[Rfam]
Notes
Rfam assigns this 113-nucleotide RNA from Paraglaciecola sp. MB-3u-78 to the family "Histidine operon leader". Rfam classes the family as a cis-regulatory leader. A search with the family's covariance model found it, with a score of 52 bits. The organism belongs to Paraglaciecola, within Bacteria. Pairs were carried over by alignment from the consensus structure, which is taken from published work. Its family is annotated with histidine biosynthetic process in the Gene Ontology. From the family's description: At least 6 amino acid operons are known to be regulated by attenuation. In each a leader sequence of 150-200 bp is found upstream of the first gene in the operon. This leader sequence can assume two different secondary structures known as the terminator and the anti-terminator structure. A reference for the family is Kolter and Yanofsky (1982), "Attenuation in amino acid biosynthetic operons", Annu Rev Genet.
RNA sequence: CCAUCAUCAUAUAGCUUAACCUUUCAGGUAUUUGCUGGGAGGUCUAUUGAAUCCUUCUAGCGGCGCAGACUCACUCUAAACCCCCGGAAGGCAUCUUUCGGGGGUUUUUCUUU
Number, nucleotide and partner (000 for none) at each position: 001c000002c034003a033004u000005c000006a029007u028008c027009a000010u000011a000012u000013a000014g025015c000016u000017u000018a000019a000020c000021c000022u000023u000024u000025c014026a000027g008028g007029u006030a000031u000032u000033u003034g002035c060036u059037g058038g057039g056040a055041g054042g053043u000044c000045u000046a000047u000048u000049g000050a000051a000052u000053c042054c041055u040056u039057c038058u037059a036060g035061c000062g000063g000064c000065g000066c000067a000068g000069a000070c000071u000072c000073a000074c000075u000076c000077u000078a107079a106080a105081c104082c103083c102084c101085c100086g099087g098088a097089a096090g095091g000092c000093a000094u000095c090096u089097u088098u087099c086100g085101g084102g083103g082104g081105u080106u079107u078108u000109u000110c000111u000112u000113u000